[Rfam]
Notes
The record is a 241-nucleotide sequence from Plantactinospora sp. BB1, which matches "Actinobacteria sRNA Ms_IGR-5" in Rfam. The match comes from Rfam's covariance-model search (86 bits). The family's RNA type in Rfam is small RNA. For this family Rfam cites "Identification of small RNAs in Mycobacterium smegmatis using heterologous Hfq" (Li et al., RNA, 2013).
RNA sequence: ACACGGGAAGGGAGGUGGUCCGAGCUUUGUAUAGCCAUAGGACUCGUGAGGUGGCUGUCCGCUAGCCGCUGUCCUUGACAGUUUCGGUGUCCGCCGCAAGCGGGCAGUUGCAAGUCGUCGAGACCGUGUGGCAGCGGUGCGGCGAAUCCACGACAGCCACCCGACCCCCGGGGCGAGCCGGCCACAGUCCAGCCGGCCCUCGCGUGACGACCGUCACGCGGGACCCCGGGGGUCGACCAUU
Numbered sequence: 001a002c003a004c005g006g007g008a009a010g011g012g013a014g015g016u017g018g019u020c021c022g023a024g025c026u027u028u029g030u031a032u033a034g035c036c037a038u039a040g041g042a043c044u045c046g047u048g049a050g051g052u053g054g055c056u057g058u059c060c061g062c063u064a065g066c067c068g069c070u071g072u073c074c075u076u077g078a079c080a081g082u083u084u085c086g087g088u089g090u091c092c093g094c095c096g097c098a099a100g101c102g103g104g105c106a107g108u109u110g111c112a113a114g115u116c117g118u119c120g121a122g123a124c125c126g127u128g129u130g131g132c133a134g135c136g137g138u139g140c141g142g143c144g145a146a147u148c149c150a151c152g153a154c155a156g157c158c159a160c161c162c163g164a165c166c167c168c169c170g171g172g173g174c175g176a177g178c179c180g181g182c183c184a185c186a187g188u189c190c191a192g193c194c195g196g197c198c199c200u201c202g203c204g205u206g207a208c209g210a211c212c213g214u215c216a217c218g219c220g221g222g223a224c225c226c227c228g229g230g231g232g233u234c235g236a237c238c239a240u241u
Stems, first nucleotide, its partner, number of pairs: 014059006060144004065140002068135004073130001162235012177197006
The pairing is the family consensus, mapped onto this sequence.